RNA sequence: GUGAUUCUGUCGGGGUGCUCCAUCUGCAAUGAGGAGCUGAGAUCGCAUAAGCGGAUCCCGUUGAACCUGAUCUGGUUAGAGCCAGCGUAGGAAACAGAAAAGCCGUUUGC
Numbered sequence: 001g002u003g004a005u006u007c008u009g010u011c012g013g014g015g016u017g018c019u020c021c022a023u024c025u026g027c028a029a030u031g032a033g034g035a036g037c038u039g040a041g042a043u044c045g046c047a048u049a050a051g052c053g054g055a056u057c058c059c060g061u062u063g064a065a066c067c068u069g070a071u072c073u074g075g076u077u078a079g080a081g082c083c084a085g086c087g088u089a090g091g092a093a094a095c096a097g098a099a100a101a102g103c104c105g106u107u108u109g110c
Base pairs, nucleotide, nucleotide: 006098007097008096009095010094011060012059013058014057016054017037018036019035020034021033044053045052046051066091067090068089069088072085073084074083075082
The family of this 110-nucleotide sequence from Bacterioplanoides sp. SCSIO 12839 is "TPP riboswitch aptamer (THI element)". A search with the family's covariance model found it, with a score of 78 bits. Rfam's curators write: Vitamin B(1) in its active form thiamin pyrophosphate (TPP) is an essential coenzyme that is synthesised by coupling of pyrimidine and thiazole moieties in bacteria. The previously detected thiamin-regulatory element, thi box was extended, resulting in a new, highly conserved RNA secondary structure, the THI element, which is widely distributed in eubacteria and also occurs in some archaea. Lineage of the source: Bacteria > Pseudomonadati > Oceanospirillales > Oceanospirillaceae > Bacterioplanoides.